[Rfam]
RNA sequence: GUUGAAUAUGCGCUGAAUUUUCCGCAAGGAAAAACGGGGGAACCAAACUUGACGGCAACGUCAAUGGGGUGAAUCGGAGGCAGGUCAGUAUGACCGGAACCGUAGGGCUACCACAGCCCGAAUCCGCCAGCUAACCUCGUAAGCAAGGGUGGGAUAAUGA
Dot-bracket structure: ...........(((...(((((......)))))((((((....((...................))(((.....(((......................)))..((((.......))))...))).........)))))).)))................
Rfam assigns this 160-nucleotide RNA from Paenibacillus sp. FSL H7-0357 to the family "c-di-AMP riboswitch aptamer (ydaO/yuaA leader)".
The match comes from Rfam's covariance-model search (81 bits).